[Rfam]
Rfam assigns this 47-nucleotide sequence to the family "DUF3800-XI RNA".

RNA sequence: AGGGCUGGUCGAAAGACCCAGGUCCAUCAAGGGUGGGGAAGUACUCC
Numbered sequence: 001a002g003g004g005c006u007g008g009u010c011g012a013a014a015g016a017c018c019c020a021g022g023u024c025c026a027u028c029a030a031g032g033g034u035g036g037g038g039a040a041g042u043a044c045u046c047c
Stems, first nucleotide, its partner, number of pairs: 002025005007018004

Rfam classes the family as a small RNA. The family's consensus secondary structure is taken from published work. About the family: Actinobacteria, Firmicutes, Proteobacteria, Spirochaetes (1 example).